[Rfam]
RNA sequence: CCGUGCUAGACGGGGAGGUAGCGGUGCCCUGUAACUCGCAAUCCGCUGUAGCGAGGUUGAAUUCCUGCUUGAGGUUAUGUGAUGCGGGGUUUGGUCUUUGUGAACAACGUUGACAGUUGGGUCCCUCGCAAUGGGCAUCUGUGAACCUGGUCAGGUCCGGAAGGAAGCAGCCAUAAGCAGACACGUUCAUGUGUUGGGGGAGUGCCUGACUCGAGUUGGGAUCAAAGGUGCCACUCGGAUCGCAUGUAUCGGGAGCAGGUGCACGG
Number, nucleotide and partner (000 for none) at each position: 001c266002c265003g264004u263005g262006c261007u000008a000009g058010a057011c056012g030013g029014g028015g027016a000017g025018g000019u023020a000021g000022c000023g019024g000025u017026g000027c015028c014029c013030u012031g000032u000033a000034a000035c055036u054037c053038g052039c051040a000041a000042u000043c000044c000045g000046c000047u000048g000049u000050a000051g039052c038053g037054a036055g035056g011057u010058u009059g000060a000061a000062u000063u000064c259065c258066u257067g256068c255069u254070u253071g000072a000073g250074g249075u248076u000077a000078u000079g243080u242081g241082a240083u239084g000085c237086g236087g235088g234089g000090u000091u000092u230093g229094g000095u000096c227097u226098u225099u224100g223101u000102g000103a000104a000105c219106a217107a216108c215109g000110u000111u000112g000113a000114c000115a211116g210117u209118u208119g207120g206121g205122u204123c200124c199125c198126u197127c196128g195129c191130a190131a000132u189133g188134g187135g186136c185137a000138u181139c180140u179141g178142u177143g000144a000145a000146c000147c000148u173149g172150g171151u170152c000153a000154g000155g000156u165157c164158c163159g000160g000161a000162a000163g158164g157165a156166a000167g000168c000169a000170g151171c150172c149173a148174u000175a000176a000177g142178c141179a140180g139181a138182c000183a000184c000185g136186u135187u134188c133189a132190u130191g129192u000193g000194u000195u128196g127197g126198g125199g124200g123201a000202g000203u000204g122205c121206c120207u119208g118209a117210c116211u115212c000213g000214a000215g108216u107217u106218g000219g105220g000221a000222u000223c100224a099225a098226a097227g096228g000229u093230g092231c000232c000233a000234c088235u087236c086237g085238g000239a083240u082241c081242g080243c079244a000245u000246g000247u000248a075249u074250c073251g000252g000253g070254a069255g068256c067257a066258g065259g064260u000261g006262c005263a004264c003265g002266g001
RNA: Bacterial large signal recognition particle RNA